A member of the RNA family "mir-877 microRNA precursor family" from Rhinolophus ferrumequinum, 85 nucleotides long.
Rfam links the family to the GO terms RISC complex and miRNA-mediated post-transcriptional gene silencing.
The base pairs follow the family's consensus structure, which was predicted with RNAalifold.
Taxonomically the source falls in Rhinolophus (Eukaryota, Eumetazoa, Gnathostomata, Eutheria).
On this family, see Berezikov et al., Genome Res 2006: "Many novel mammalian microRNA candidates identified by extensive cloning and RAKE analysis".
RNA sequence: GUAGAGGAGAUGGCUCAGGGGACACGGGCUAGACUUGGGGCUUCCUGCGACCUCCGGACACGUUUCCUCUUCUCGCUCCUCCCAG
Dot-bracket structure: ...((((((...(...((((((.(((.(......((((((.(......)..)))))).).))).))))))...).))))))....
Numbered sequence: 001g002u003a004g005a006g007g008a009g010a011u012g013g014c015u016c017a018g019g020g021g022a023c024a025c026g027g028g029c030u031a032g033a034c035u036u037g038g039g040g041c042u043u044c045c046u047g048c049g050a051c052c053u054c055c056g057g058a059c060a061c062g063u064u065u066c067c068u069c070u071u072c073u074c075g076c077u078c079c080u081c082c083c084a085g
Stems, first nucleotide, its partner, number of pairs: 004081006013074001017070006024063003028059001035057006042049001